[Rfam]
RNA sequence: GGCCUUGCUUGGCAAACAUACUUAAAGGUAUGGGCGCAAAGUCUCCGGCCUAAGGGAAACUAUGGUAGCGGGAUUGCGACA
Dot-bracket structure: ...........((...((((((....))))))...))..((((.((((((....(....)...)))..)))))))......

This 81-nucleotide RNA from Candidatus Gallionella acididurans belongs to the Rfam family "c-di-GMP-I riboswitch aptamer". The match comes from Rfam's covariance-model search (58 bits). Lineage of the source: Bacteria > Pseudomonadati > Pseudomonadota > Gallionellaceae > Gallionella. Pairs were carried over by alignment from the consensus structure, which is taken from published work. The family is grouped with related families in Rfam's "c-di-GMP_I riboswitch clan".